[Rfam]
The family of this 45-nucleotide sequence from Arminella tumorigenes is "ctRNA".
A search with the family's covariance model found it, with a score of 63 bits.
About the family: This family represents a group of ctRNAs (or counter-transcribed RNAs) from p42d and related plasmids. ctRNAs are small, highly structured, antisense sequences which are involved in negative regulation.
For this family Rfam cites "Two discrete elements are required for the replication of a repABC plasmid: an antisense RNA and a stem-loop structure" (Venkova-Canova et al., Mol Microbiol, 2004).
The family's RNA type in Rfam is antisense RNA.
The family has 10 seed sequences and 245 matches in Rfam 15.1.
RNA sequence: AGAAAGCUUCCGUGACGGCGACGUUCGGGGGCUUUUUUCUUUUGC
Numbered sequence: 001a002g003a004a005a006g007c008u009u010c011c012g013u014g015a016c017g018g019c020g021a022c023g024u025u026c027g028g029g030g031g032c033u034u035u036u037u038u039c040u041u042u043u044g045c
Stems, first nucleotide, its partner, number of pairs: 004034008014025004